[Rfam]
This 267-nucleotide sequence from Lentibacillus populi belongs to the Rfam family "Bacterial large signal recognition particle RNA". By type it is a non-coding RNA gene. Pairs were carried over by alignment from the consensus structure, which is taken from published work. A search with the family's covariance model found it, with a score of 220 bits.

RNA sequence: CCGUGCUAAGUGGGGAGGUAGCGGUGCCCUGUACUCGCAAUCCGCUAUAGCGAGGCCGAAUCCCCAUCCAAGGUGAGGCGACUUUAAGGUCUGCCUUAAGGGAUUGGUGUUGACGUCUCAGGUCCUGCGCAACAGAGACCCAUGAACCCUGUCAGGUCCGGAAGGAAGCAGCAGUAAGUGGAUUCCUCUGUGUGCCGUGGGGAAGCCUGGACUGAGCCAUGAACUUAAGUAACGCUUAGGGACGUUUCAUCGACGAUGGGUGCACGG
Numbered sequence: 001c002c003g004u005g006c007u008a009a010g011u012g013g014g015g016a017g018g019u020a021g022c023g024g025u026g027c028c029c030u031g032u033a034c035u036c037g038c039a040a041u042c043c044g045c046u047a048u049a050g051c052g053a054g055g056c057c058g059a060a061u062c063c064c065c066a067u068c069c070a071a072g073g074u075g076a077g078g079c080g081a082c083u084u085u086a087a088g089g090u091c092u093g094c095c096u097u098a099a100g101g102g103a104u105u106g107g108u109g110u111u112g113a114c115g116u117c118u119c120a121g122g123u124c125c126u127g128c129g130c131a132a133c134a135g136a137g138a139c140c141c142a143u144g145a146a147c148c149c150u151g152u153c154a155g156g157u158c159c160g161g162a163a164g165g166a167a168g169c170a171g172c173a174g175u176a177a178g179u180g181g182a183u184u185c186c187u188c189u190g191u192g193u194g195c196c197g198u199g200g201g202g203a204a205g206c207c208u209g210g211a212c213u214g215a216g217c218c219a220u221g222a223a224c225u226u227a228a229g230u231a232a233c234g235c236u237u238a239g240g241g242a243c244g245u246u247u248c249a250u251c252g253a254c255g256a257u258g259g260g261u262g263c264a265c266g267g
Stems, first nucleotide, its partner, number of pairs: 001267006010056002012030004017025001019023001034054005063260006072251005079244002082241007092231002096228005104221001106218003115212003119209005124201006130192002133190005138183001140181004149174004157166003